Rfam assigns this 153-nucleotide RNA from Blautia liquoris to the family "Clostridiales-1 RNA". A search with the family's covariance model found it, with a score of 137 bits. The family's RNA type in Rfam is small RNA.
RNA sequence: UGAUACUAGGGUUAAAAGGUUAUGCUUUUCAUGCUUGCAUGAAAAGCAAUAACCUUGGAACCCGAACAAACAUGAGAAUGUAGCCCGAUAGGGUGGAAUUCGAAUGUUUGCAGGAUUGCGGGAGCACGAAGUGCGCAGCAAUCCGUGGUAUCA
Dot-bracket structure: (((((((..((((..((((((((((((.(((((....))))).))))).)))))))..))))....(((((((..((((...((((....))))...))))..)))))))..(((((((....((((...))))...)))))))..)))))))